[Rfam]
Description:
TPP riboswitch aptamer (THI element): a 113-nucleotide RNA from Rothia santali.
RNA sequence: AGGCACGACACGGGGUGCCGCGCGGGAGCCGAUCCAGGCUCCGGCGGCUGAGAUGACACCCGUCGAACCUGAUUCAGUUAGCACUGGCGAAGGGAAUGUCCGCUCGGUGCCGA
Numbered sequence: 001a002g003g004c005a006c007g008a009c010a011c012g013g014g015g016u017g018c019c020g021c022g023c024g025g026g027a028g029c030c031g032a033u034c035c036a037g038g039c040u041c042c043g044g045c046g047g048c049u050g051a052g053a054u055g056a057c058a059c060c061c062g063u064c065g066a067a068c069c070u071g072a073u074u075c076a077g078u079u080a081g082c083a084c085u086g087g088c089g090a091a092g093g094g095a096a097u098g099u100c101c102g103c104u105c106g107g108u109g110c111c112g113a
Stems, first nucleotide, its partner, number of pairs: 007100004011062004016056001017048005068093003074087004

The base pairs follow the family's consensus structure, which is taken from published work. The match comes from Rfam's covariance-model search (58 bits).